[Rfam]
RNA sequence: GGUCGAGGACGACCUCGACCUUUCAUGACAACCGGUGGGGACGGCCCUG
Numbered sequence: 001g002g003u004c005g006a007g008g009a010c011g012a013c014c015u016c017g018a019c020c021u022u023u024c025a026u027g028a029c030a031a032c033c034g035g036u037g038g039g040g041a042c043g044g045c046c047c048u049g
Base pairs, nucleotide, nucleotide: 001020002019003018004017005016006015007014008013036049037048038047039046040045
Record summary: The family of this 49-nucleotide RNA from Microvirga flocculans is "Guanidine-II riboswitch aptamer (mini-ykkC)". The organism belongs to Microvirga, within Bacteria. From the family's description: Simpler in structure and has fewer highly conserved nucleotide positions than the ykkC-yxkD leader. Despite this each of its two stem-loop structures directly bind free guanidine. Therefore, mini-ykkC RNA motif represents a distinct class of guanidine-sensing RNAs. Its crystal structure was also determined.